[Rfam]
RNA: small nucleolar RNA snoR134
Organism: Cocos nucifera
RNA sequence: UUGCACGGAGCACACCAGGCUUUGCUGAGAAACUUCAUGACGACGGAAGCCCCAAUGCUUGUGCUAGAUGGAUUUGCCGUUCUAUGUUGUAGAUCUAUUCAUGAAUUCUAACGACUAAUCUAUGUCAAAGUAAUGGCUAAAAAU
Numbered sequence: 001u002u003g004c005a006c007g008g009a010g011c012a013c014a015c016c017a018g019g020c021u022u023u024g025c026u027g028a029g030a031a032a033c034u035u036c037a038u039g040a041c042g043a044c045g046g047a048a049g050c051c052c053c054a055a056u057g058c059u060u061g062u063g064c065u066a067g068a069u070g071g072a073u074u075u076g077c078c079g080u081u082c083u084a085u086g087u088u089g090u091a092g093a094u095c096u097a098u099u100c101a102u103g104a105a106u107u108c109u110a111a112c113g114a115c116u117a118a119u120c121u122a123u124g125u126c127a128a129a130g131u132a133a134u135g136g137c138u139a140a141a142a143a144u
Base pairs, nucleotide, nucleotide: 003064004063005062006061007060008059010058011057018051019050020049021048022046023045025042076137077136078135079134080133081132085127086126088124089123090122091121092120093119096114
Dot-bracket structure: ..((((((.((......((((((.(................)..)).)))).....))))))))...........((((((...((.((((((..(.................)....)))))).))....)))))).......